[Rfam]
RNA sequence: UUGUUAAUGCUAAUUGUGUUAGGGGUUUUUUAUUCAAAAAUGACUCCUGCAUGUUGGCAUUUUCAC
Numbered sequence: 001u002u003g004u005u006a007a008u009g010c011u012a013a014u015u016g017u018g019u020u021a022g023g024g025g026u027u028u029u030u031u032a033u034u035c036a037a038a039a040a041u042g043a044c045u046c047c048u049g050c051a052u053g054u055u056g057g058c059a060u061u062u063u064c065a066c
Stems, first nucleotide, its partner, number of pairs: 006061009020049004025044003
Dot-bracket structure: .....(((((((((.....((((.(((..............))).))))...))))))))).....
RNA: mir-155 microRNA precursor family